[Rfam]
RNA sequence: GCCGAGCUUACUAACGCAAGCUUAUAACCCGAGUGGGGGCGUUAGGGUGUUGGAACGCUGGUCUGGCCUCAGCGGGUCGGUUCUGUCGUGGCUCUUUUCUGGCCCGCCCGUUCCAAGCUGAGAGUUGAGCCGUGUGGUCUGGGCGAAGGCUUGGGCUUCACGGCUCCUAAAGCGGAGGGCACUGCGUAAGGCUGGCUUUACAGAGCAACGAUCACCACCCGCUCUUGGCAGUGGAAGGAUAACAGGUCGGUGCCAUCCGGAUCCAUCAUGGCCCGCUGGACCGCUCCAAUUUGAACCAACACUUUU
Numbered sequence: 001g002c003c004g005a006g007c008u009u010a011c012u013a014a015c016g017c018a019a020g021c022u023u024a025u026a027a028c029c030c031g032a033g034u035g036g037g038g039g040c041g042u043u044a045g046g047g048u049g050u051u052g053g054a055a056c057g058c059u060g061g062u063c064u065g066g067c068c069u070c071a072g073c074g075g076g077u078c079g080g081u082u083c084u085g086u087c088g089u090g091g092c093u094c095u096u097u098u099c100u101g102g103c104c105c106g107c108c109c110g111u112u113c114c115a116a117g118c119u120g121a122g123a124g125u126u127g128a129g130c131c132g133u134g135u136g137g138u139c140u141g142g143g144c145g146a147a148g149g150c151u152u153g154g155g156c157u158u159c160a161c162g163g164c165u166c167c168u169a170a171a172g173c174g175g176a177g178g179g180c181a182c183u184g185c186g187u188a189a190g191g192c193u194g195g196c197u198u199u200a201c202a203g204a205g206c207a208a209c210g211a212u213c214a215c216c217a218c219c220c221g222c223u224c225u226u227g228g229c230a231g232u233g234g235a236a237g238g239a240u241a242a243c244a245g246g247u248c249g250g251u252g253c254c255a256u257c258c259g260g261a262u263c264c265a266u267c268a269u270g271g272c273c274c275g276c277u278g279g280a281c282c283g284c285u286c287c288a289a290u291u292u293g294a295a296c297c298a299a300c301a302c303u304u305u306u
Base pairs, nucleotide, nucleotide: 001040002039003038004023005022006021007020008019009018011016028037029036030035044305045304046303047302048301049300050299051298052297053296056293057292059289061287064283065282066281069279070278071277072276073275074274075273076272077271078270079264080263082261083260084259085258089255090254091253093252099250100249101248102247103246104245106243108238109237111236112235113234114233115232117229118228119227120226121225122224123223124222125221127166128165129164130163131162132161133160134159136157137156138155139154140153141152142151143150144149167172174219175218177216178215185210186209187208192203193202194201